[Rfam]
RNA sequence: GAUAAAGGGGGCGAGAAACCCCCUCGCCGUAAGACUAAGGUUUCCACAGCUAUGCUAAUCAGCUGUGGGUUAGUCAGGACCUAACGCGUACCCAAACGGGGAAGUGGAUGGACAACAGGUUAAUAUUCCUGUACUACCUUAUACUGCGAUGGAGGGACGGAGAAGUGAAAGCAACACGUACGGACAGAAGUGUACGUCUAAGUGCGUAGGUAUUGGAACUGUAGGCAAAUCCGCAGAUCUAGCUGAAACAUGAGUGAUAACCGCGUCUUCGGACAAGGGAAGUUGCCUAAUCAUGCUCCCAAGAAAAACUUCUAAGCUUCAGGUAUAAGGUACCUGUACCGUAAACCGACACAGGUAGUCGAGGAGAGUAUCCUCAGGCGCU
Numbered sequence: 001g002a003u004a005a006a007g008g009g010g011g012c013g014a015g016a017a018a019c020c021c022c023c024u025c026g027c028c029g030u031a032a033g034a035c036u037a038a039g040g041u042u043u044c045c046a047c048a049g050c051u052a053u054g055c056u057a058a059u060c061a062g063c064u065g066u067g068g069g070u071u072a073g074u075c076a077g078g079a080c081c082u083a084a085c086g087c088g089u090a091c092c093c094a095a096a097c098g099g100g101g102a103a104g105u106g107g108a109u110g111g112a113c114a115a116c117a118g119g120u121u122a123a124u125a126u127u128c129c130u131g132u133a134c135u136a137c138c139u140u141a142u143a144c145u146g147c148g149a150u151g152g153a154g155g156g157a158c159g160g161a162g163a164a165g166u167g168a169a170a171g172c173a174a175c176a177c178g179u180a181c182g183g184a185c186a187g188a189a190g191u192g193u194a195c196g197u198c199u200a201a202g203u204g205c206g207u208a209g210g211u212a213u214u215g216g217a218a219c220u221g222u223a224g225g226c227a228a229a230u231c232c233g234c235a236g237a238u239c240u241a242g243c244u245g246a247a248a249c250a251u252g253a254g255u256g257a258u259a260a261c262c263g264c265g266u267c268u269u270c271g272g273a274c275a276a277g278g279g280a281a282g283u284u285g286c287c288u289a290a291u292c293a294u295g296c297u298c299c300c301a302a303g304a305a306a307a308a309c310u311u312c313u314a315a316g317c318u319u320c321a322g323g324u325a326u327a328a329g330g331u332a333c334c335u336g337u338a339c340c341g342u343a344a345a346c347c348g349a350c351a352c353a354g355g356u357a358g359u360c361g362a363g364g365a366g367a368g369u370a371u372c373c374u375c376a377g378g379c380g381c382u
Stems, first nucleotide, its partner, number of pairs: 006024006025380004033360004039340002044068006053061002075336004080111002085106003089102001091100003115132005135332011146317002151312004159299004165292001171286005176197006198256001202251003209244003216239002219236004224232002258279001265274003346355002362374004
Shown here is a 382-nucleotide part of an RNA from an uncultured Flavobacteriia bacterium, a member of the family "Bacterial large subunit ribosomal RNA". Its family is annotated with ribosome and structural constituent of ribosome in the Gene Ontology.